[Rfam]
RNA sequence: GGGGACCUGCGGGGCCCUAUACCAAGACAGGGGCCAAGCGCCCCGCAAAGCAACGGAAGACAGAAA
Number, nucleotide and partner (000 for none) at each position: 001g018002g017003g016004g015005a000006c014007c013008u012009g000010c000011g000012g008013g007014g006015c004016c003017c002018u001019a000020u000021a000022c000023c000024a000025a000026g000027a000028c000029a000030g044031g043032g042033g041034c040035c000036a000037a000038g000039c000040g034041c033042c032043c031044c030045g000046c000047a000048a000049a000050g000051c000052a000053a000054c000055g000056g000057a000058a000059g000060a000061c000062a000063g000064a000065a000066a000
Shown here is a 66-nucleotide RNA sequence from Roseicyclus persicicus, a member of the family "L2-Alphaproteobacteria ribosomal protein leader".